[Rfam]
RNA sequence: AAUAAUAUGAUGAGGUUGAAAAAAAAUGACAAGCAUAUGUCUGAAUCUUUUAUGAAGAGAAACUUUUUCAUGUCUGAUAUU
Numbered sequence: 001a002a003u004a005a006u007a008u009g010a011u012g013a014g015g016u017u018g019a020a021a022a023a024a025a026a027u028g029a030c031a032a033g034c035a036u037a038u039g040u041c042u043g044a045a046u047c048u049u050u051u052a053u054g055a056a057g058a059g060a061a062a063c064u065u066u067u068u069c070a071u072g073u074c075u076g077a078u079a080u081u
Stems, first nucleotide, its partner, number of pairs: 001081004